RNA sequence: GUCCCGCUUCCGUUCACGAAGGAUCGUCCGGCACGUACCUGCCGGUGAAGGAGGACGAC
Dot-bracket structure: .........((.((((...........((((((......))))))))))))........